Shown here is a 131-nucleotide RNA from Papaver somniferum, a member of the family "U4 spliceosomal RNA". The base pairs follow the family's consensus structure, which is taken from published work. Lineage of the source: Eukaryota > Euphyllophyta > Spermatophyta > Papaveraceae > Papaver.

RNA sequence: AUCUUUGCGCUUGGGGCAAUGCCGCAUCUAAUGAGGUAAUAACCGAGGCACGUCAAUUGCUGGUUGAAAACUAUUUCCAAACCCCCUCCUCGGCAUUAGGGUCGUCGAGAAGGGCUCCCUCUAAACAAGGG
Number, nucleotide and partner (000 for none) at each position: 001a000002u000003c000004u000005u000006u000007g000008c000009g000010c000011u000012u000013g000014g000015g000016g000017c000018a000019a000020u000021g054022c000023c052024g051025c000026a000027u000028c048029u047030a000031a000032u000033g000034a000035g044036g043037u042038a000039a000040u000041a000042a037043c036044c035045g000046a000047g029048g028049c000050a000051c024052g023053u000054c021055a000056a000057u000058u000059g000060c000061u000062g000063g000064u000065u000066g000067a000068a000069a000070a000071c000072u000073a000074u000075u000076u000077c000078c000079a000080a000081a000082c000083c000084c000085c000086c114087u111088c000089c109090u108091c107092g106093g105094c104095a102096u101097u000098a000099g000100g000101g096102u095103c000104g094105u093106c092107g091108a090109g089110a000111a087112g000113g000114g086115c000116u000117c131118c130119c129120u000121c000122u000123a000124a000125a000126c000127a000128a000129g119130g118131g117